RNA sequence: AGUGAGGAUAGAGGUGCGAUAACCAAUAGUACAUAAUCAGAGGAGAUGCAGCCGUUGACGGUUAUGGAAAGGGGAAGUCGCCGAAGUUAGUAAAAUGGCAUCAUUUUACUAUACUGGUUCUGUAUUGAAUAAAUACCGAGCUGUCAUAUAGCAAGUCGCUAUAUGGAGGGCUAUCUCACGC
Numbered sequence: 001a002g003u004g005a006g007g008a009u010a011g012a013g014g015u016g017c018g019a020u021a022a023c024c025a026a027u028a029g030u031a032c033a034u035a036a037u038c039a040g041a042g043g044a045g046a047u048g049c050a051g052c053c054g055u056u057g058a059c060g061g062u063u064a065u066g067g068a069a070a071g072g073g074g075a076a077g078u079c080g081c082c083g084a085a086g087u088u089a090g091u092a093a094a095a096u097g098g099c100a101u102c103a104u105u106u107u108a109c110u111a112u113a114c115u116g117g118u119u120c121u122g123u124a125u126u127g128a129a130u131a132a133a134u135a136c137c138g139a140g141c142u143g144u145c146a147u148a149u150a151g152c153a154a155g156u157c158g159c160u161a162u163a164u165g166g167a168g169g170g171c172u173a174u175c176u177c178a179c180g181c
Base pairs, nucleotide, nucleotide: 006176007175008174009173010172011171016081017080018079019078020077023074024073032066033065034064035063036062037061038060085115086114087113088111089110090109091108092107093106094105095104116142117141118140119139120138122136123135124134125133126132144166145165146164147163148162149161150160
About this RNA
Lysine riboswitch aptamer: a 181-nucleotide RNA from Saliterribacillus persicus.